[Rfam]
RNA: Lysine riboswitch aptamer
RNA sequence: UGAUGAGGUAGAGGUUGCGGCUUUUAUGAGUACUUCCCAUGAGGCACAGAGAUGCCGAUGACUGCGAAGGAAAGGAAAAGCUGCCGAAGUCUGUUUGUUUCUCUGGGCAAGCAGGCUGGGCCCGUCUCCGAACAGGAACGGGACUGUCACACGGUUCACUUCUCUUGAAUCGUGUGGUGCGCUAUCUUUAGG
Numbered sequence: 001u002g003a004u005g006a007g008g009u010a011g012a013g014g015u016u017g018c019g020g021c022u023u024u025u026a027u028g029a030g031u032a033c034u035u036c037c038c039a040u041g042a043g044g045c046a047c048a049g050a051g052a053u054g055c056c057g058a059u060g061a062c063u064g065c066g067a068a069g070g071a072a073a074g075g076a077a078a079a080g081c082u083g084c085c086g087a088a089g090u091c092u093g094u095u096u097g098u099u100u101c102u103c104u105g106g107g108c109a110a111g112c113a114g115g116c117u118g119g120g121c122c123c124g125u126c127u128c129c130g131a132a133c134a135g136g137a138a139c140g141g142g143a144c145u146g147u148c149a150c151a152c153g154g155u156u157c158a159c160u161u162c163u164c165u166u167g168a169a170u171c172g173u174g175u176g177g178u179g180c181g182c183u184a185u186c187u188u189u190a191g192g
Base pairs, nucleotide, nucleotide: 006187007186008185009184010183011182017084018083019082020081021080022079023078024077025076033069034068035067036066038064039063088117089116090115091114092113093112094111095110096109097108098107099106118145119144121142122141123140124139125138127136128135147177148176149175150174151173152172153171154170155169156168157167158166